[Rfam]
RNA: FMN riboswitch aptamer (RFN element)
Nucleotides: 156
Base pairs, nucleotide, nucleotide: 006151007150008149009148010147017029018028019027031136032135033125034124035062036061037060038059057123058122065101066100105121106120107119108118109117127139128138129137
Number, partner (000 for none) and nucleotide at each position: 001000c002000u003000u004000a005000u006151u007150u008149c009148u010147c011000a012000g013000g014000g015000c016000a017029g018028g019027g020000u021000g022000c023000a024000a025000u026000u027019c028018c029017c030000u031136a032135c033125u034124g035062g036061c037060g038059g039000u040000a041000a042000u043000c044000u045000u046000c047000u048000a049000g050000g051000a052000a053000g054000a055000g056000a057123g058122u059038c060037c061036g062035c063000g064000a065101g066100c067000g068000c069000u070000u071000u072000u073000g074000u075000c076000u077000u078000u079000a080000c081000a082000u083000g084000u085000a086000a087000a088000g089000g090000u091000a092000a093000a094000a095000g096000g097000u098000c099000a100066g101065c102000a103000g104000a105121u106120u107119u108118g109117g110000u111000g112000u113000a114000a115000c116000u117109c118108c119107a120106a121105a122058a123057c124034c125033a126000a127139c128138g129137g130000u131000u132000a133000a134000a135032g136031u137129c138128c139127g140000g141000a142000u143000g144000a145000g146000a147010g148009a149008g150007a151006a152000u153000g154000u155000a156000g